[Rfam]
RNA: Xanthine riboswitch aptamer (NMT1 RNA)
RNA sequence: UUGCAGAGUAUAAGCGGCUAGCGUCGGCGUAUCUGACCGGCGUGGGGCAUUGCUCUUGGG
Dot-bracket structure: ....((((((....[..((.((((((...........)))))).]))...))))))....
Numbered sequence: 001u002u003g004c005a006g007a008g009u010a011u012a013a014g015c016g017g018c019u020a021g022c023g024u025c026g027g028c029g030u031a032u033c034u035g036a037c038c039g040g041c042g043u044g045g046g047g048c049a050u051u052g053c054u055c056u057u058g059g060g
Stems, first nucleotide, its partner, number of pairs: 005056006015045001018047002021043006